Shown here is a 119-nucleotide RNA, a member of the family "LOOT RNA". The family's RNA type in Rfam is small RNA.
RNA sequence: GACCUAACCCAUCAGGAGAAAUCCUGGUGGUAUGGUCAAAAUCGCAACGAGCAUAAAGAUCCCAUCAUCAGGAUCGCUCGUUGCGUUAUACAGGGAAACUUGUAUAUGGCCGUAAGGUC
Numbered sequence: 001g002a003c004c005u006a007a008c009c010c011a012u013c014a015g016g017a018g019a020a021a022u023c024c025u026g027g028u029g030g031u032a033u034g035g036u037c038a039a040a041a042u043c044g045c046a047a048c049g050a051g052c053a054u055a056a057a058g059a060u061c062c063c064a065u066c067a068u069c070a071g072g073a074u075c076g077c078u079c080g081u082u083g084c085g086u087u088a089u090a091c092a093g094g095g096a097a098a099c100u101u102g103u104a105u106a107u108g109g110c111c112g113u114a115a116g117g118u119c
Stems, first nucleotide, its partner, number of pairs: 001037004009030009043085010058075005087106008108119004